[Rfam]
RNA sequence: AAGAAACCAAAUCGUUUUGAUGUCUGUUUCCGCCUUUCCCUUACUGUUCCACUUUCAACCCCACCUUUCCUCAACCCUUGGUACUCGGUUGAAGGGGACCCACGUCGUCUUAGAACUGCCUGAGGUAGAGGAGUUUUAGUCGGUAGGUUCGAGGACUUCUUCCUCGGAAAUCCGACACUACCCAGUCGUACGGACGUCUUUUCAAGAUUUCCCCUCUUCCACGAAA
Numbered sequence: 001a002a003g004a005a006a007c008c009a010a011a012u013c014g015u016u017u018u019g020a021u022g023u024c025u026g027u028u029u030c031c032g033c034c035u036u037u038c039c040c041u042u043a044c045u046g047u048u049c050c051a052c053u054u055u056c057a058a059c060c061c062c063a064c065c066u067u068u069c070c071u072c073a074a075c076c077c078u079u080g081g082u083a084c085u086c087g088g089u090u091g092a093a094g095g096g097g098a099c100c101c102a103c104g105u106c107g108u109c110u111u112a113g114a115a116c117u118g119c120c121u122g123a124g125g126u127a128g129a130g131g132a133g134u135u136u137u138a139g140u141c142g143g144u145a146g147g148u149u150c151g152a153g154g155a156c157u158u159c160u161u162c163c164u165c166g167g168a169a170a171u172c173c174g175a176c177a178c179u180a181c182c183c184a185g186u187c188g189u190a191c192g193g194a195c196g197u198c199u200u201u202u203c204a205a206g207a208u209u210u211c212c213c214c215u216c217u218u219c220c221a222c223g224a225a226a
Stems, first nucleotide, its partner, number of pairs: 036098006105224004124220002127217002130213002139176005148168008178196001
The record is a 226-nucleotide sequence from Agrilus planipennis, which matches "R2 RNA element" in Rfam.
Rfam links the family to the GO term regulation of reverse transcription.
This family represents the 3' UTR region of the R2 retrotransposable element. This family is known to interact with the R2-encoded reverse transcriptase in a reaction known as target primed reverse transcription (TPRT).
The family's consensus secondary structure is taken from published work.
Lineage of the source: Eukaryota > Panarthropoda > Hexapoda > Dicondylia > Agrilus.
The match comes from Rfam's covariance-model search (44 bits).
The family's RNA type in Rfam is cis-regulatory element.